[Rfam]
RNA sequence: GGCCACCGUCCCCGCAGCACAGCCCCGGCUCGCUGGUCGGCAACCCUCCACCCGCGGUGGGGUGCCCCGGGUGAUGACCAGGUUCGGCACGACCGUGCCGGGCAAGCGCGCGAU
Numbered sequence: 001g002g003c004c005a006c007c008g009u010c011c012c013c014g015c016a017g018c019a020c021a022g023c024c025c026c027g028g029c030u031c032g033c034u035g036g037u038c039g040g041c042a043a044c045c046c047u048c049c050a051c052c053c054g055c056g057g058u059g060g061g062g063u064g065c066c067c068c069g070g071g072u073g074a075u076g077a078c079c080a081g082g083u084u085c086g087g088c089a090c091g092a093c094c095g096u097g098c099c100g101g102g103c104a105a106g107c108g109c110g111c112g113a114u
Stems, first nucleotide, its partner, number of pairs: 001079002004076001008038001011036002014033002021030002039066003044062003048057002082103009
Dot-bracket structure: ((.(...(..((.((.....((......)).)).)).)(((..(((.((......))..))).))).........).))..(((((((((....)))))))))...........
Shown here is a 114-nucleotide RNA sequence from a Mycobacteriaceae bacterium, a member of the family "SAM (S-adenosyl methionine) riboswitch aptamer". It scores 77 bits against the family's covariance model. NCBI's taxonomy places the organism under Bacteria, Bacillati, Actinomycetes, Mycobacteriales, Mycobacteriaceae. From the family's description: SAM-IV is a mRNA element that regulates gene expression via direct sensing of S-adenosylmethionine (SAM or AdoMet).